Shown here is a 256-nucleotide part of an RNA from Nitrososphaera viennensis, a member of the family "Archaeal large subunit ribosomal RNA".
[Rfam]
RNA sequence: GAGAUUGCUGUCAUGGCGAGCCUAACCUGACGAGGGGAAGGCGAAGGGAAACCAAAUCUGCGCAGCUUUGGCGAGGCAGAGGAUCCGAAAGGGUCUUGAGUCAUGGCAGUAAGGCUAGAAACCGGACGAUCUAGUCCUGGUCAGGACGAAGGGGGGCGAAAGCCCCCUGGAGGUCCGCAAGGGUCCUGACGUGCAAAUCGGUCCCCAGAACUGGGAUUAGGGGUCAAAAACCAAUCUAGUCCGGUGAUCGCUAGUU
Numbered sequence: 001g002a003g004a005u006u007g008c009u010g011u012c013a014u015g016g017c018g019a020g021c022c023u024a025a026c027c028u029g030a031c032g033a034g035g036g037g038a039a040g041g042c043g044a045a046g047g048g049a050a051a052c053c054a055a056a057u058c059u060g061c062g063c064a065g066c067u068u069u070g071g072c073g074a075g076g077c078a079g080a081g082g083a084u085c086c087g088a089a090a091g092g093g094u095c096u097u098g099a100g101u102c103a104u105g106g107c108a109g110u111a112a113g114g115c116u117a118g119a120a121a122c123c124g125g126a127c128g129a130u131c132u133a134g135u136c137c138u139g140g141u142c143a144g145g146a147c148g149a150a151g152g153g154g155g156g157c158g159a160a161a162g163c164c165c166c167c168u169g170g171a172g173g174u175c176c177g178c179a180a181g182g183g184u185c186c187u188g189a190c191g192u193g194c195a196a197a198u199c200g201g202u203c204c205c206c207a208g209a210a211c212u213g214g215g216a217u218u219a220g221g222g223g224u225c226a227a228a229a230a231c232c233a234a235u236c237u238a239g240u241c242c243g244g245u246g247a248u249c250g251c252u253a254g255u256u
Stems, first nucleotide, its partner, number of pairs: 005112013020042004026036003046053002058079004065072002082095004115254002118251001122244006131220011142208001144176004151168007181205003185201002188199002222232003
Annotation
Gene Ontology terms of the family: structural constituent of ribosome and ribosome. The family is grouped with related families in Rfam's "LSU clan".